[Rfam]
RNA sequence: GUACCGUCACAACGGCUUCCUGGCGUGGCGGGUCAGACCGAAUGGAGCA
Numbered sequence: 001g002u003a004c005c006g007u008c009a010c011a012a013c014g015g016c017u018u019c020c021u022g023g024c025g026u027g028g029c030g031g032g033u034c035a036g037a038c039c040g041a042a043u044g045g046a047g048c049a
Stems, first nucleotide, its partner, number of pairs: 004031007013022002015048003019045002
SAM/SAH riboswitch aptamer: a 49-nucleotide RNA from Wenxinia saemankumensis. It scores 55 bits against the family's covariance model. The base pairs follow the family's consensus structure, which is taken from published work. NCBI's taxonomy places the organism under Bacteria, Pseudomonadati, Alphaproteobacteria, Rhodobacterales, Wenxinia. Rfam links the family to the GO terms regulation of gene expression and S-adenosylmethionine metabolic process.